This 50-nucleotide RNA sequence from Beijerinckiaceae bacterium RH AL1 belongs to the Rfam family "ffh sRNA". The base pairs follow the family's consensus structure, which is taken from published work. Taxonomically the source falls in Beijerinckiaceae (Bacteria, Pseudomonadati, Pseudomonadota, Hyphomicrobiales). A search with the family's covariance model found it, with a score of 43 bits. The literature on the family includes a 2009 paper in BMC Genomics by Meyer et al., "Identification of candidate structured RNAs in the marine organism 'Candidatus Pelagibacter ubique'".
[Rfam]
RNA sequence: GAUGCCGGCGGCACGCCCGGCAGCGCGAUGCGCCCCCGGGCGCGUUUUGC
Dot-bracket structure: .............(((((((..((((...))))..)))))))........